[Rfam]
RNA sequence: GAUGACGAGACAUCAUGUUCAACUACUCCUUCCUACUAGGCCUACUACUAAACGCAUCAACAUUGCGCGGUAUGCUGGUGGGCAGAAUUCAGAACUGAUUUUUCACACCAUCAAUAAAAAACCCGCGCCGAUGCGCGGGUUUUUUU
Numbered sequence: 001g002a003u004g005a006c007g008a009g010a011c012a013u014c015a016u017g018u019u020c021a022a023c024u025a026c027u028c029c030u031u032c033c034u035a036c037u038a039g040g041c042c043u044a045c046u047a048c049u050a051a052a053c054g055c056a057u058c059a060a061c062a063u064u065g066c067g068c069g070g071u072a073u074g075c076u077g078g079u080g081g082g083c084a085g086a087a088u089u090c091a092g093a094a095c096u097g098a099u100u101u102u103u104c105a106c107a108c109c110a111u112c113a114a115u116a117a118a119a120a121a122c123c124c125g126c127g128c129c130g131a132u133g134c135g136c137g138g139g140u141u142u143u144u145u146u
Stems, first nucleotide, its partner, number of pairs: 007104004013098003017095004029085002032082007046072004053067004118143011
RNA: Leucine operon leader